[Rfam]
RNA sequence: UGUCUCCUCUAUUCUCCUCUGGAAAAUAGAUUUCAAGCCCGUUGCCUGACGGGCUUUUUUUC
Number, nucleotide and partner (000 for none) at each position: 001u000002g000003u000004c000005u000006c000007c000008u030009c029010u028011a027012u026013u023014c022015u000016c000017c000018u000019c000020u000021g000022g014023a013024a000025a000026a012027u011028a010029g009030a008031u000032u000033u000034c000035a000036a055037g054038c053039c052040c051041g050042u049043u048044g000045c000046c000047u000048g043049a042050c041051g040052g039053g038054c037055u036056u000057u000058u000059u000060u000061u000062c000
RNA: Betaproteobacteria toxic small RNA
Organism: Herbaspirillum sp. SJZ107